[Rfam]
Nucleotides: 067
Stems, first nucleotide, its partner, number of pairs: 004064003010058003015053003020049001022047001025044005
Number, partner (000 for none) and nucleotide at each position: 001000a002000c003000a004064a005063c006062a007000u008000u009000c010058g011057g012056a013000c014000c015053g016052u017051c018000g019000g020049u021000c022047u023000a024000c025044c026043g027042a028041g029040c030000a031000a032000u033000a034000u035000c036000a037000c038000c039000c040029g041028c042027u043026c044025g045000a046000c047022a048000a049020a050000a051017g052016a053015u054000c055000u056012u057011c058010c059000c060000a061000c062006u063005g064004u065000c066000g067000u